The family of this 95-nucleotide sequence from Clarias magur is "let-7 microRNA precursor family". Rfam 15.1 lists 8,694 matches to the family in 797 species. Its Rfam clan is "let-7 microRNA precursor clan". Rfam's curators write: This family represents the microRNAs (miRNA) let-7 and mir-98. let-7 was identified from a study of developmental timing in C. elegans, and was later shown to be part of a much larger class of non-coding RNAs termed miRNAs. The family's consensus secondary structure was predicted with RNAalifold.
RNA sequence: UUGUGUUGAGGUAGUAAGUUGUGUUGUUGUGGGGACUUGCUAUGAUUUGCCCUUUUUUUUUUGGAGAUAACUAUACAUCUUACUGCCUUCCAUGC
Numbered sequence: 001u002u003g004u005g006u007u008g009a010g011g012u013a014g015u016a017a018g019u020u021g022u023g024u025u026g027u028u029g030u031g032g033g034g035a036c037u038u039g040c041u042a043u044g045a046u047u048u049g050c051c052c053u054u055u056u057u058u059u060u061u062u063g064g065a066g067a068u069a070a071c072u073a074u075a076c077a078u079c080u081u082a083c084u085g086c087c088u089u090c091c092a093u094g095c
Stems, first nucleotide, its partner, number of pairs: 002094004008089011020077005026071002032057004059066002